Background: Plastid-psbA-3 3UTR RNA: a 51-nucleotide sequence from Hanabusaya asiatica. The sequence is in the family's curated seed alignment. Rfam's curators write: Plastid psbA-3 is a non-coding RNA (ncRNA) present in plastids. It was identified in inverted repeat sequences in the 3 prime untranslate region (3UTR) of photosystem II quinone-binding protein (psbA).
RNA sequence: AGGAAGAAUAACGCCCUCUUGAUAGAACAAGAAAGGCGUUAUUCUUCCUUU
Number, nucleotide and partner (000 for none) at each position: 001a049002g048003g047004a046005a045006g044007a043008a042009u041010a040011a039012c038013g000014c000015c000016c000017u032018c031019u030020u029021g028022a000023u000024a000025g000026a000027a000028c021029a020030a019031g018032a017033a000034a000035g000036g000037c000038g012039u011040u010041a009042u008043u007044c006045u005046u004047c003048c002049u001050u000051u000